The record is an 89-nucleotide sequence from Desulfosporosinus sp. Sb-LF, which matches "pan motif" in Rfam.

Nucleotides: 089
Base pairs, nucleotide, nucleotide: 002025003024004022005021006020007019008018010017011016057085058084059083060081061080062079064077066076067075068074
Number, partner (000 for none) and nucleotide at each position: 001000u002025g003024g004022g005021c006020a007019g008018u009000a010017u011016c012000a013000u014000u015000a016011g017010a018008a019007c020006u021005g022004c023000a024003c025002c026000u027000u028000u029000u030000c031000a032000u033000g034000g035000a036000a037000u038000c039000c040000u041000a042000a043000c044000a045000a046000u047000u048000u049000a050000a051000a052000u053000g054000g055000u056000u057085c058084u059083g060081c061080c062079u063000a064077g065000a066076c067075c068074u069000g070000u071000u072000a073000c074068g075067g076066g077064c078000c079062a080061g081060g082000a083059c084058a085057g086000a087000g088000g089000g
Pairs were carried over by alignment from the consensus structure, which is taken from published work.